[Rfam]
RNA sequence: GCGUCACAGGAUGAAGUGAGCGGGCCUUAACCAGCCCUGGAAAGUCCCCGGGCCCCUUGCGCAGCGAUGCGCCCACGGAGACGUGGAACGGCCCACGAGCCGGCUCUCCCUGCUUCGGUGGGGGGCUGAGACACGUGUGGAGCCCAAUUUCAGGGAGCCGGCUCUGGUUCAAUUGGCCAAGCUUGUCACACACAGUUAUUCACUUGGUCCUCACUCAUGGACUAACAGAACGGGGCUUACACUCCUGUGGCG
Numbered sequence: 001g002c003g004u005c006a007c008a009g010g011a012u013g014a015a016g017u018g019a020g021c022g023g024g025c026c027u028u029a030a031c032c033a034g035c036c037c038u039g040g041a042a043a044g045u046c047c048c049c050g051g052g053c054c055c056c057u058u059g060c061g062c063a064g065c066g067a068u069g070c071g072c073c074c075a076c077g078g079a080g081a082c083g084u085g086g087a088a089c090g091g092c093c094c095a096c097g098a099g100c101c102g103g104c105u106c107u108c109c110c111u112g113c114u115u116c117g118g119u120g121g122g123g124g125g126c127u128g129a130g131a132c133a134c135g136u137g138u139g140g141a142g143c144c145c146a147a148u149u150u151c152a153g154g155g156a157g158c159c160g161g162c163u164c165u166g167g168u169u170c171a172a173u174u175g176g177c178c179a180a181g182c183u184u185g186u187c188a189c190a191c192a193c194a195g196u197u198a199u200u201c202a203c204u205u206g207g208u209c210c211u212c213a214c215u216c217a218u219g220g221a222c223u224a225a226c227a228g229a230a231c232g233g234g235g236c237u238u239a240c241a242c243u244c245c246u247g248u249g250g251c252g
Base pairs, nucleotide, nucleotide: 002252003251004250007247008246009245010244011243014205015204016203017202018201019200022037023036024035025034042238043237044236046235047234048233049232060071061070062069063068073086074085075084076083077082100161101160102159103158104157105156109154110153111152112151123145124144125143126142133138207222208221209220210219
Description: Shown here is a 252-nucleotide sequence from Sorghum bicolor, a member of the family "RNase MRP". Gene Ontology terms of the family: rRNA processing, ribonuclease MRP activity and ribonuclease MRP complex. By type it is a ribozyme. Rfam describes the family as follows. RNase MRP is an enzymatically active ribonucleoprotein with two distinct roles in eukaryotes. In mitochondria it plays a direct role in the initiation of mitochondrial DNA replication. In the nucleus it is involved in precursor rRNA processing, where it cleaves the internal transcribed spacer 1 between 18S and 5.8S rRNAs. The family's consensus secondary structure is taken from published work.